[Rfam]
RNA sequence: UAAUCUUUUGUGGUUUAGGGUCUGAAAAACUCAUAUAGUAUUGUGUUGUCAUCAGCUUCUUCUCUUGCAAUUUUUACGAGAUUGGAGUUAAAUAACAGCACUAAAUUU
Numbered sequence: 001u002a003a004u005c006u007u008u009u010g011u012g013g014u015u016u017a018g019g020g021u022c023u024g025a026a027a028a029a030c031u032c033a034u035a036u037a038g039u040a041u042u043g044u045g046u047u048g049u050c051a052u053c054a055g056c057u058u059c060u061u062c063u064c065u066u067g068c069a070a071u072u073u074u075u076a077c078g079a080g081a082u083u084g085g086a087g088u089u090a091a092a093u094a095a096c097a098g099c100a101c102u103a104a105a106u107u108u
Stems, first nucleotide, its partner, number of pairs: 043101006054089006061081004